Record summary:
A. fumigatus sRNA Afu_309: a 266-nucleotide RNA from Rosellinia necatrix. For this family Rfam cites "Small ncRNA transcriptome analysis from Aspergillus fumigatus suggests a novel mechanism for regulation of protein synthesis" (Jochl et al., Nucleic Acids Res, 2008). It scores 122 bits against the family's covariance model. Lineage of the source: Eukaryota > Opisthokonta > Pezizomycotina > Xylariales > Rosellinia. Rfam 15.1 lists 663 matches to the family in 646 species. Pairs were carried over by alignment from the consensus structure, which was predicted with WAR.
RNA sequence: CUUACACCACCGACCUGUGCCCGACCGUCCUCUGUUCGCAUUGCGAAUUCAGAGUUGAUGGUCGAGGCAGCUCGAUUUCCUAUGGAAUCAUCCUUUUCGUCAUGAUGUCAGUCCAAAUCACAGGUCGCAGAGUAACCAAACUCAGCGCGCCUGAGUUCGCCCUCGGGCUGAGCUCGGCACGCUGUAUUUGGAGACCGUAUAUUCCAAAGCCACAGCUGAGAUCUUUGAUUUAUGAGGUGGGGGAAAACCAUACGAUGUCUACAUAA
Number, nucleotide and partner (000 for none) at each position: 001c000002u000003u000004a000005c000006a000007c000008c000009a000010c000011c127012g126013a125014c124015c123016u122017g121018u120019g068020c067021c066022c064023g063024a062025c000026c060027g059028u058029c057030c054031u053032c052033u051034g050035u000036u047037c045038g044039c043040a000041u000042u000043g039044c038045g037046a000047a036048u000049u000050c034051a033052g032053a031054g030055u000056u000057g029058a028059u027060g026061g000062u024063c023064g022065a000066g021067g020068c019069a000070g000071c000072u000073c000074g000075a000076u000077u000078u117079c000080c000081u000082a000083u110084g109085g108086a000087a106088u105089c104090a000091u000092c000093c000094u000095u000096u000097u000098c000099g000100u000101c000102a000103u000104g089105a088106u087107g000108u085109c084110a083111g000112u000113c000114c000115a000116a000117a078118u000119c000120a018121c017122a016123g015124g014125u013126c012127g011128c000129a000130g000131a000132g000133u000134a000135a000136c000137c000138a188139a187140a000141c000142u000143c000144a000145g000146c000147g000148c000149g178150c177151c176152u000153g175154a174155g173156u172157u171158c170159g168160c167161c000162c000163u000164c000165g000166g000167g160168c159169u000170g158171a157172g156173c155174u154175c153176g151177g150178c149179a000180c000181g000182c000183u000184g000185u000186a000187u139188u138189u000190g000191g000192a000193g259194a258195c257196c254197g253198u252199a251200u250201a000202u000203u000204c000205c000206a000207a000208a000209g000210c242211c241212a000213c239214a000215g238216c237217u236218g000219a000220g230221a229222u228223c227224u000225u000226u000227g223228a222229u221230u220231u000232a000233u000234g000235a000236g217237g216238u215239g213240g000241g211242g210243g000244a000245a000246a000247a000248c000249c000250a200251u199252a198253c197254g196255a000256u000257g195258u194259c193260u000261a000262c000263a000264u000265a000266a000